[Rfam]
RNA sequence: CUUCUGCUGUGAUGAUCUAUGAAAUAAAAUUCACAUGUCAGACUUCAGAGAUUUGUAUAAAAUCUAUGAGAAGAACAUUUCAUGCUUUCUGAGCAGAGG
Numbered sequence: 001c002u003u004c005u006g007c008u009g010u011g012a013u014g015a016u017c018u019a020u021g022a023a024a025u026a027a028a029a030u031u032c033a034c035a036u037g038u039c040a041g042a043c044u045u046c047a048g049a050g051a052u053u054u055g056u057a058u059a060a061a062a063u064c065u066a067u068g069a070g071a072a073g074a075a076c077a078u079u080u081c082a083u084g085c086u087u088u089c090u091g092a093g094c095a096g097a098g099g
Base pairs, nucleotide, nucleotide: 001099002098003097004096005095006094007093050064051063052062053061
Dot-bracket structure: (((((((..........................................((((.......))))............................)))))))